Rfam assigns this 75-nucleotide RNA from Streptomyces orinoci to the family "ASpks TB sRNA". The base pairs follow the family's consensus structure, which is taken from published work. By type it is an antisense RNA. For this family Rfam cites "Identification of small RNAs in Mycobacterium tuberculosis" (Arnvig and Young, Mol Microbiol, 2009).
RNA sequence: CUUCAGCGAACCCAGCCAGAGCGGCCGUUGGGCCGGACGGUCCUGUCCAUAGGUGGCCAGCAGGGCCUCCGCCUC
Numbered sequence: 001c002u003u004c005a006g007c008g009a010a011c012c013c014a015g016c017c018a019g020a021g022c023g024g025c026c027g028u029u030g031g032g033c034c035g036g037a038c039g040g041u042c043c044u045g046u047c048c049a050u051a052g053g054u055g056g057c058c059a060g061c062a063g064g065g066c067c068u069c070c071g072c073c074u075c
Base pairs, nucleotide, nucleotide: 015025016024017023034071035070036069038065043060044059045058047056048055049054
Taxonomically the source falls in Streptomyces (Bacteria, Bacillati, Actinomycetota, Actinomycetes).